Nucleotides: 051
Stems, first nucleotide, its partner, number of pairs: 001050007009026007029043003033040001
Number, partner (000 for none) and nucleotide at each position: 001050g002049g003048u004047c005046g006045g007044g008000a009026g010025c011024g012023c013022u014021g015020c016000c017000u018000u019000u020015g021014u022013a023012g024011u025010g026009c027000g028000u029043u030042g031041a032000a033040c034000a035000u036000u037000u038000g039000u040033g041031u042030c043029a044007c045006c046005u047004g048003g049002c050001u051000c

Rfam assigns this 51-nucleotide RNA sequence to the family "DUF3800-VI RNA". Rfam classes the family as a cis-regulatory element.